[Rfam]
RNA sequence: AGGCGGGGACGACCUCGCGGUGCGGCCCGCCGAGGACGACCUUG
Number, nucleotide and partner (000 for none) at each position: 001a000002g000003g018004c017005g016006g015007g014008g013009a000010c000011g000012a000013c008014c007015u006016c005017g004018c003019g000020g000021u000022g000023c000024g000025g000026c000027c000028c000029g000030c000031c044032g043033a042034g041035g040036a000037c000038g000039a000040c035041c034042u033043u032044g031